[Rfam]
RNA: L17-Actino-Proteobacteria ribosomal protein leader
Organism: Actinomadura hallensis
RNA sequence: CGUCUGGACACGCGAAGCAAGUGCAGUUCAACACGGCUGACGCCGGUACCUGAUACGGCCGGCGCAG
Dot-bracket structure: (((.(((((................)))))..))).(((.(((((((..........))))))))))